RNA sequence: AGCCCAAAUUUGAAGCAGAGUAAACUAGAAGGAUCAUCUGACCCUACUAAACUAGUCUACUUCGAGUUUGUGCUC
Numbered sequence: 001a002g003c004c005c006a007a008a009u010u011u012g013a014a015g016c017a018g019a020g021u022a023a024a025c026u027a028g029a030a031g032g033a034u035c036a037u038c039u040g041a042c043c044c045u046a047c048u049a050a051a052c053u054a055g056u057c058u059a060c061u062u063c064g065a066g067u068u069u070g071u072g073c074u075c
Stems, first nucleotide, its partner, number of pairs: 001074003005070005011064005017058003021054002026049003030045001032043001034041002
The record is a 75-nucleotide RNA sequence from Haemonchus placei, which matches "mir-5928 microRNA precursor family" in Rfam. Its family is annotated with RISC complex and miRNA-mediated post-transcriptional gene silencing in the Gene Ontology. A search with the family's covariance model found it, with a score of 60 bits. Rfam 15.1 lists 1,672 matches to the family in 12 species.